[Rfam]
RNA sequence: UACAAGCUACAUUGUGCGUAUUUAAUUAAAGUUUUAACCUCUAAUAAGAUAAUAGGGAGUUUUACAUCGGAAUCCAAAUGCCGGGCCGUCAUGUAACGGAAGGCAGGAAGAUUUCUGCGAACACCCACUUGGUGAAGUGGUGGUUUAAAACUUUUUAUUAUAACAAAUACGGCAAAUGUGGCUGUACU
Numbered sequence: 001u002a003c004a005a006g007c008u009a010c011a012u013u014g015u016g017c018g019u020a021u022u023u024a025a026u027u028a029a030a031g032u033u034u035u036a037a038c039c040u041c042u043a044a045u046a047a048g049a050u051a052a053u054a055g056g057g058a059g060u061u062u063u064a065c066a067u068c069g070g071a072a073u074c075c076a077a078a079u080g081c082c083g084g085g086c087c088g089u090c091a092u093g094u095a096a097c098g099g100a101a102g103g104c105a106g107g108a109a110g111a112u113u114u115c116u117g118c119g120a121a122c123a124c125c126c127a128c129u130u131g132g133u134g135a136a137g138u139g140g141u142g143g144u145u146u147a148a149a150a151c152u153u154u155u156u157a158u159u160a161u162a163a164c165a166a167a168u169a170c171g172g173c174a175a176a177u178g179u180g181g182c183u184g185u186a187c188u
Base pairs, nucleotide, nucleotide: 005183006182007181008180009179010178011177012175013174014173015172017171018170019169030152031151032150033149035147036146037145038143039142055126056125057124059122060121061120062119066116069115070114071113072112073111074110080104081103086099087098088097089096
This 188-nucleotide RNA sequence from Bacilli bacterium VT-13-104 belongs to the Rfam family "6S / SsrS RNA". The base pairs follow the family's consensus structure, which is taken from published work. A reference for the family is Wassarman and Storz (2000), "6S RNA regulates E. coli RNA polymerase activity", Cell. The family's RNA type in Rfam is non-coding RNA gene.